[Rfam]
RNA sequence: CUGUUAAUGCUAAUCGUGAUAGGGGUUUUUACCUCAAGCAACUCCUACAUGUUAGCAUUAACAG
Numbered sequence: 001c002u003g004u005u006a007a008u009g010c011u012a013a014u015c016g017u018g019a020u021a022g023g024g025g026u027u028u029u030u031a032c033c034u035c036a037a038g039c040a041a042c043u044c045c046u047a048c049a050u051g052u053u054a055g056c057a058u059u060a061a062c063a064g
Base pairs, nucleotide, nucleotide: 004061005060006059007058008057009056010055011054012053013052014051020047021046022045023044025042026041027040
Rfam assigns this 64-nucleotide RNA from Loxodonta africana to the family "mir-155 microRNA precursor family". The base pairs follow the family's consensus structure, which was predicted with RNAalifold.